This 79-nucleotide sequence from Lymphocryptovirus humangamma4 belongs to the Rfam family "mir-BART17 microRNA precursor family". The organism belongs to Lymphocryptovirus humangamma4, within Viruses. The family has 2 seed sequences and 6 matches in Rfam 15.1. It is one of the family's seed sequences.
[Rfam]
RNA sequence: UGUGGCACCCUAAGAGGACGCAGGCAUACAAGGUUAUUACCCAGUCCUUGUAUGCCUGGUGUCCCCUUAGUGGGACGCA
Numbered sequence: 001u002g003u004g005g006c007a008c009c010c011u012a013a014g015a016g017g018a019c020g021c022a023g024g025c026a027u028a029c030a031a032g033g034u035u036a037u038u039a040c041c042c043a044g045u046c047c048u049u050g051u052a053u054g055c056c057u058g059g060u061g062u063c064c065c066c067u068u069a070g071u072g073g074g075a076c077g078c079a
Stems, first nucleotide, its partner, number of pairs: 001079004006074001008073002010070005016064005021058006030049004